[Rfam]
RNA: SAM riboswitch aptamer (S box leader)
Organism: Sphingobacterium gobiense
RNA sequence: GGUUUAUAAAGAAGUGGCGAGAGACUGGCUCAAUGACCCACUGGCAACCAGCAAGAGAAAUUGAAAAGGUGCCAAAUCCUGUCCAAAACAAUAUCGUUUUGGAAUAUAUAAAUA
Numbered sequence: 001g002g003u004u005u006a007u008a009a010a011g012a013a014g015u016g017g018c019g020a021g022a023g024a025c026u027g028g029c030u031c032a033a034u035g036a037c038c039c040a041c042u043g044g045c046a047a048c049c050a051g052c053a054a055g056a057g058a059a060a061u062u063g064a065a066a067a068g069g070u071g072c073c074a075a076a077u078c079c080u081g082u083c084c085a086a087a088a089c090a091a092u093a094u095c096g097u098u099u100u101g102g103a104a105u106a107u108a109u110a111a112a113u114a
Base pairs, nucleotide, nucleotide: 002113003112004111005110006109007108008107013042014041015040016039017038021031022030023029025081027079028078043073044072045071046070048069049068052063053062077106082103083102084101085100086099087098088097089096